[Rfam]
RNA: Glycine riboswitch aptamer
Nucleotides: 089
Stems, first nucleotide, its partner, number of pairs: 006084004011079003020033004035069003038065002042063003048056002
Number, partner (000 for none) and nucleotide at each position: 001000g002000c003000a004000u005000c006084c007083g008082c009081g010000a011079g012078g013077g014000g015000a016000g017000a018000a019000u020033c021032c022031g023030g024000g025000g026000c027000g028000a029000c030023c031022c032021g033020g034000u035069g036068c037067c038065g039064a040000a041000g042063g043062a044061g045000c046000a047000a048056c049055c050000g051000c052000c053000c054000c055049g056048g057000u058000a059000a060000a061044c062043u063042c064039u065038c066000a067037g068036g069035c070000c071000a072000a073000a074000g075000g076000a077013c078012c079011c080000g081009c082008g083007c084006g085000a086000a087000u088000c089000a